[Rfam]
RNA sequence: AGGUGAUGUCUCCUUAUCUUUAUCAAGGGAGGUACUCGGCUAUGCUGUGGGUAGAAAUCUACCUUAGACACUUUGUUGUCAUUGGUAUGGUGUGAGGUGGGGUUUGAUGCCCU
Numbered sequence: 001a002g003g004u005g006a007u008g009u010c011u012c013c014u015u016a017u018c019u020u021u022a023u024c025a026a027g028g029g030a031g032g033u034a035c036u037c038g039g040c041u042a043u044g045c046u047g048u049g050g051g052u053a054g055a056a057a058u059c060u061a062c063c064u065u066a067g068a069c070a071c072u073u074u075g076u077u078g079u080c081a082u083u084g085g086u087a088u089g090g091u092g093u094g095a096g097g098u099g100g101g102g103u104u105u106g107a108u109g110c111c112c113u
Stems, first nucleotide, its partner, number of pairs: 001019004007034007035096004039091008049064006067080004099113005
A member of the RNA family "epsC RNA" from Bacillus mesophilus, 113 nucleotides long. The family has 30 seed sequences and 450 matches in Rfam 15.1. It scores 105 bits against the family's covariance model. The organism belongs to Bacillus, within Bacteria. It is annotated as a cis-regulatory element.